[Rfam]
RNA sequence: CGCAGGUGCAGGGCUUCGCUGAUUGGUGAACAGUGGCUGUUUUUCUCUUUGUUCACAGUGGCCAAGUUCUACACCUGGA
Numbered sequence: 001c002g003c004a005g006g007u008g009c010a011g012g013g014c015u016u017c018g019c020u021g022a023u024u025g026g027u028g029a030a031c032a033g034u035g036g037c038u039g040u041u042u043u044u045c046u047c048u049u050u051g052u053u054c055a056c057a058g059u060g061g062c063c064a065a066g067u068u069c070u071a072c073a074c075c076u077g078g079a
Stems, first nucleotide, its partner, number of pairs: 011069006018062003026056007
The family of this 79-nucleotide sequence from Albula goreensis is "mir-27 microRNA precursor family". Lineage of the source: Eukaryota > Teleostomi > Elopocephala > Elopomorpha > Albula. The base pairs follow the family's consensus structure, which was predicted with RNAalifold. On this family, see Chen et al., Genes Dev 2005: "The developmental miRNA profiles of zebrafish as determined by small RNA cloning".